RNA sequence: UAUUAUUGAGGUCGGAAAUGGUUCCCGACACACUCUUCGGAGUACCUGAGAUGAUGGAUACACCGCCCAUCCAAUAAUA
Numbered sequence: 001u002a003u004u005a006u007u008g009a010g011g012u013c014g015g016a017a018a019u020g021g022u023u024c025c026c027g028a029c030a031c032a033c034u035c036u037u038c039g040g041a042g043u044a045c046c047u048g049a050g051a052u053g054a055u056g057g058a059u060a061c062a063c064c065g066c067c068c069a070u071c072c073a074a075u076a077a078u079a
Stems, first nucleotide, its partner, number of pairs: 001079008011029005019065004031048001032043004053071005
RNA: skipping-rope RNA